A member of the RNA family "Mammalian CPEB3 ribozyme" from Alligator mississippiensis, 75 nucleotides long.
RNA sequence: UUUUAAGAUCAAGGCCAUAGCAGAAGCGCCCAUGGCACAGCCCUGUCAGAUUCCAAUGAAUCUGCAAAUCCUUUU
Dot-bracket structure: ............(((...[[.[[.[(.(.......).).)))....(((((((....)))))))....].]].]]
Numbered sequence: 001u002u003u004u005a006a007g008a009u010c011a012a013g014g015c016c017a018u019a020g021c022a023g024a025a026g027c028g029c030c031c032a033u034g035g036c037a038c039a040g041c042c043c044u045g046u047c048a049g050a051u052u053c054c055a056a057u058g059a060a061u062c063u064g065c066a067a068a069u070c071c072u073u074u075u
Stems, first nucleotide, its partner, number of pairs: 013042003019075002022072002025069001026038001028036001047064007

Pairs were carried over by alignment from the consensus structure, which is taken from published work. It scores 46 bits against the family's covariance model. NCBI's taxonomy places the organism under Eukaryota, Gnathostomata, Amniota, Sauropsida, Alligator.